[Rfam]
RNA sequence: GUUAACAGUUAGUUUUGCAGGUUUGCAUUCAGCUGAUAUGUGCUGAUGCUGUGCAAAUCCAUGCAAAACUGACAGUAGCA
Numbered sequence: 001g002u003u004a005a006c007a008g009u010u011a012g013u014u015u016u017g018c019a020g021g022u023u024u025g026c027a028u029u030c031a032g033c034u035g036a037u038a039u040g041u042g043c044u045g046a047u048g049c050u051g052u053g054c055a056a057a058u059c060c061a062u063g064c065a066a067a068a069c070u071g072a073c074a075g076u077a078g079c080a
Base pairs, nucleotide, nucleotide: 003078005076006075008073009072010071011070012069013068014067015066016065017064018063019062020060021059022057023056024055025054026053027052028051031050032049033048
Rfam assigns this 80-nucleotide sequence from Scyliorhinus torazame to the family "mir-19 microRNA precursor family". On this family, see Lagos-Quintana et al., Science 2001: "Identification of novel genes coding for small expressed RNAs". The family has 106 seed sequences and 2,337 matches in Rfam 15.1. Clan: mir-19 clan.